[Rfam]
Shown here is a 78-nucleotide RNA from Schistosoma japonicum, a member of the family "mir-3492 microRNA precursor family".
The base pairs follow the family's consensus structure, which was predicted with RNAalifold.
Taxonomically the source falls in Schistosoma (Eukaryota, Lophotrochozoa, Rhabditophora, Digenea).
It scores 45 bits against the family's covariance model.

RNA sequence: AAUUUUCUGAAUCCGAGCUGAGAUUUUGUCAGACAAUGACGCAUCAGGAUGGAUGAGACUUGUGAGAUAAGUGAAGUG
Number, nucleotide and partner (000 for none) at each position: 001a000002a077003u076004u075005u074006u073007c000008u071009g000010a000011a068012u067013c066014c000015g000016a000017g063018c000019u062020g061021a060022g059023a000024u058025u057026u056027u055028g054029u053030c052031a000032g000033a000034c000035a000036a000037u000038g000039a000040c000041g000042c000043a000044u000045c000046a000047g000048g000049a000050u000051g000052g030053a029054u028055g027056a026057g025058a024059c022060u021061u020062g019063u017064g000065a000066g013067a012068u011069a000070a000071g008072u000073g006074a005075a004076g003077u002078g000